[Rfam]
RNA: dinG RNA
RNA sequence: AAUGAUACUUCUGCUAAGUCCUAACUCACAUCUGGAUAGCAGCCCGGCAAAGCGACCGGGGAAACGCCCGCCGUAUUUGCGAAAGAAUACGGAGUGGAUUUC
Numbered sequence: 001a002a003u004g005a006u007a008c009u010u011c012u013g014c015u016a017a018g019u020c021c022u023a024a025c026u027c028a029c030a031u032c033u034g035g036a037u038a039g040c041a042g043c044c045c046g047g048c049a050a051a052g053c054g055a056c057c058g059g060g061g062a063a064a065c066g067c068c069c070g071c072c073g074u075a076u077u078u079g080c081g082a083a084a085g086a087a088u089a090c091g092g093a094g095u096g097g098a099u100u101u102c
Stems, first nucleotide, its partner, number of pairs: 011042005043060005061102004067097001069094001072091005